[Rfam]
This 102-nucleotide RNA from Falsibacillus pallidus belongs to the Rfam family "Purine riboswitch aptamer". It scores 93 bits against the family's covariance model.

RNA sequence: AAUAAUUAAAUAUGUUUACGUCGUAUAAUGUUGGGGAUAUGGCCCAAAAGUUUCUACCAAGCUACCGUAAAUGGCUUGACUACGAGGUAAUGCGGAUAUAGA
Numbered sequence: 001a002a003u004a005a006u007u008a009a010a011u012a013u014g015u016u017u018a019c020g021u022c023g024u025a026u027a028a029u030g031u032u033g034g035g036g037a038u039a040u041g042g043c044c045c046a047a048a049a050g051u052u053u054c055u056a057c058c059a060a061g062c063u064a065c066c067g068u069a070a071a072u073g074g075c076u077u078g079a080c081u082a083c084g085a086g087g088u089a090a091u092g093c094g095g096a097u098a099u100a101g102a
Stems, first nucleotide, its partner, number of pairs: 018088002021085005029049001031047005058078007
Dot-bracket structure: .................((.(((((...(.(((((.......))))).)........(((((((.......)))))))..))))).))..............
Its Rfam clan is "Purine riboswitches". The base pairs follow the family's consensus structure, which is taken from published work. About the family: Riboswitches are metabolite binding domains within certain messenger RNAs that serve as precision sensors for their corresponding targets.